[Rfam]
RNA: Twister_sister_ribozyme
RNA sequence: AUAAUCCGCAAGGCCAUCUGCUCUUACCAGAUAUCGGUGCAAGCCCGAUAGGAGAGGGUAAAAUCUCUCCUGGUGCUCAUGGAUCCAUA
Numbered sequence: 001a002u003a004a005u006c007c008g009c010a011a012g013g014c015c016a017u018c019u020g021c022u023c024u025u026a027c028c029a030g031a032u033a034u035c036g037g038u039g040c041a042a043g044c045c046c047g048a049u050a051g052g053a054g055a056g057g058g059u060a061a062a063a064u065c066u067c068u069c070c071u072g073g074u075g076c077u078c079a080u081g082g083a084u085c086c087a088u089a
Stems, first nucleotide, its partner, number of pairs: 004084004013074003018030003033049004050071008